[Rfam]
Rfam assigns this 70-nucleotide RNA sequence from Echeneis naucrates to the family "miR-430 microRNA precursor family". The family has 32 seed sequences and 24,817 matches in Rfam 15.1. The match comes from Rfam's covariance-model search (56 bits). On this family, see Giraldez et al., Science 2005: "MicroRNAs regulate brain morphogenesis in zebrafish". Clan: mir-290 clan. Lineage of the source: Eukaryota > Eumetazoa > Gnathostomata > Teleostei > Echeneis. Pairs were carried over by alignment from the consensus structure, which was predicted with RNAalifold.

RNA sequence: AACGUUUCCCCAACUGAAGCACAGACUUCUGUUCUGAGAGCAGUAAGUGCUAUUUGUUGGGGUAAUGUUG
Number, nucleotide and partner (000 for none) at each position: 001a000002a000003c000004g066005u065006u064007u000008c062009c061010c060011c059012a000013a057014c056015u000016g054017a053018a051019g050020c049021a048022c047023a000024g000025a044026c043027u042028u000029c000030u000031g000032u000033u000034c000035u000036g000037a000038g000039a000040g000041c000042a027043g026044u025045a000046a000047g022048u021049g020050c019051u018052a000053u017054u016055u000056g014057u013058u000059g011060g010061g009062g008063u000064a006065a005066u004067g000068u000069u000070g000